[Rfam]
RNA sequence: UCCGGGGGAAGCUCACCGCCGAGGUCACCUACUGGGUGCGCGUCACCCGAAGCCUCGCCUCGGGGAAGGUCUGAGGGAAGGGCCGCGUCAUACGGCUCUAGCAGAGCCCCGCCCGCGAGUGCCCUCACAGGGCGAAGGGCGGGCGGGUGAGCCACCAGCAAGGGGGGGCGCCGCGCUUUAUGGGGCUCAUGACGCUGAGUUCGGGCAGGAGAAGCCGUAGCCGGGUUCAGCGAGGCUCGUUGAACCCCCGGCGGAUGCUCGCGGCCUCCGCGGUGCUUUGAGACAGACUCACGGCCGGCGAUCGCUGAGUCCAAUGGGUGAGGUGGGGCAGCGCCCUACAACCCAAUUCAGACUACUCUCCCCCGGA
Numbered sequence: 001u002c003c004g005g006g007g008g009a010a011g012c013u014c015a016c017c018g019c020c021g022a023g024g025u026c027a028c029c030u031a032c033u034g035g036g037u038g039c040g041c042g043u044c045a046c047c048c049g050a051a052g053c054c055u056c057g058c059c060u061c062g063g064g065g066a067a068g069g070u071c072u073g074a075g076g077g078a079a080g081g082g083c084c085g086c087g088u089c090a091u092a093c094g095g096c097u098c099u100a101g102c103a104g105a106g107c108c109c110c111g112c113c114c115g116c117g118a119g120u121g122c123c124c125u126c127a128c129a130g131g132g133c134g135a136a137g138g139g140c141g142g143g144c145g146g147g148u149g150a151g152c153c154a155c156c157a158g159c160a161a162g163g164g165g166g167g168g169c170g171c172c173g174c175g176c177u178u179u180a181u182g183g184g185g186c187u188c189a190u191g192a193c194g195c196u197g198a199g200u201u202c203g204g205g206c207a208g209g210a211g212a213a214g215c216c217g218u219a220g221c222c223g224g225g226u227u228c229a230g231c232g233a234g235g236c237u238c239g240u241u242g243a244a245c246c247c248c249c250g251g252c253g254g255a256u257g258c259u260c261g262c263g264g265c266c267u268c269c270g271c272g273g274u275g276c277u278u279u280g281a282g283a284c285a286g287a288c289u290c291a292c293g294g295c296c297g298g299c300g301a302u303c304g305c306u307g308a309g310u311c312c313a314a315u316g317g318g319u320g321a322g323g324u325g326g327g328g329c330a331g332c333g334c335c336c337u338a339c340a341a342c343c344c345a346a347u348u349c350a351g352a353c354u355a356c357u358c359u360c361c362c363c364c365g366g367a
Base pairs, nucleotide, nucleotide: 001367002366003365004364007361008360009359012322013321014320015319016318017317020062021061022060023059024058034048035047036046037045038044071351072350073349074348075347081296082295083294084293094108095107096106097105098104109146110145111144112143113142114141115140116139147292148291149290150289151288153286167277168276169275170274171273172272173271174270175269323339324338325337326336327335328334329333
Shown here is a 367-nucleotide RNA from Zapornia atra, a member of the family "Nuclear RNase P".
Lineage of the source: Eukaryota > Gnathostomata > Amniota > Rallidae > Zapornia.